[Rfam]
RNA sequence: UUUAAAUAGUUUAAUUAUACUCAUAUAUAUUUGACGAUACGGGUCAAAUGUUUCUACAAGAUAGCCAUAAACCAUCUGACUAUGAGUAAGUAAUUAAAGUAG
Numbered sequence: 001u002u003u004a005a006a007u008a009g010u011u012u013a014a015u016u017a018u019a020c021u022c023a024u025a026u027a028u029a030u031u032u033g034a035c036g037a038u039a040c041g042g043g044u045c046a047a048a049u050g051u052u053u054c055u056a057c058a059a060g061a062u063a064g065c066c067a068u069a070a071a072c073c074a075u076c077u078g079a080c081u082a083u084g085a086g087u088a089a090g091u092a093a094u095u096a097a098a099g100u101a102g
Base pairs, nucleotide, nucleotide: 018088019087020086021085022084023083024082025081029049030048031047032046033045034044035043059077060076061075062074064072

The family of this 102-nucleotide RNA sequence from Clostridiaceae bacterium 14S0207 is "Purine riboswitch aptamer". The base pairs follow the family's consensus structure, which is taken from published work.